[Rfam]
RNA sequence: GCACUCUGCCUAUUUCCUGUUCCCCGCUGUGCAGUGUGGGUCUGGGGGCACUCGGUGCUACAGCAAAGCAGUGGAAAUCCAGGUGGGUUCUUCUCCACUGGUUUGGGACUCAUCUCUACACCUCUGCAACACCU
Numbered sequence: 001g002c003a004c005u006c007u008g009c010c011u012a013u014u015u016c017c018u019g020u021u022c023c024c025c026g027c028u029g030u031g032c033a034g035u036g037u038g039g040g041u042c043u044g045g046g047g048g049c050a051c052u053c054g055g056u057g058c059u060a061c062a063g064c065a066a067a068g069c070a071g072u073g074g075a076a077a078u079c080c081a082g083g084u085g086g087g088u089u090c091u092u093c094u095c096c097a098c099u100g101g102u103u104u105g106g107g108a109c110u111c112a113u114c115u116c117u118a119c120a121c122c123u124c125u126g127c128a129a130c131a132c133c134u
Base pairs, nucleotide, nucleotide: 001058002057003056004055006054014048015047016046017045018044019043022040023039068127069126070125071124073122081115082114083113084112085111086110087109088108095106096105097104